[Rfam]
The record is an 86-nucleotide sequence from Amycolatopsis cihanbeyliensis, which matches "ZMP/ZTP riboswitch aptamer (pfl RNA motif)" in Rfam.
RNA sequence: GGUCGUCCGAGCGACUGGCGCCGCCUGAGGUGGAGCACCACCGGGGAGCUUUCGAUCGGCAGGCACCGCGCGCCUGGGUGUCCCGC
Numbered sequence: 001g002g003u004c005g006u007c008c009g010a011g012c013g014a015c016u017g018g019c020g021c022c023g024c025c026u027g028a029g030g031u032g033g034a035g036c037a038c039c040a041c042c043g044g045g046g047a048g049c050u051u052u053c054g055a056u057c058g059g060c061a062g063g064c065a066c067c068g069c070g071c072g073c074c075u076g077g078g079u080g081u082c083c084c085g086c
Stems, first nucleotide, its partner, number of pairs: 003055003009051004015045002017074005030041004063081005
NCBI's taxonomy places the organism under Bacteria, Bacillati, Actinomycetota, Pseudonocardiales, Amycolatopsis.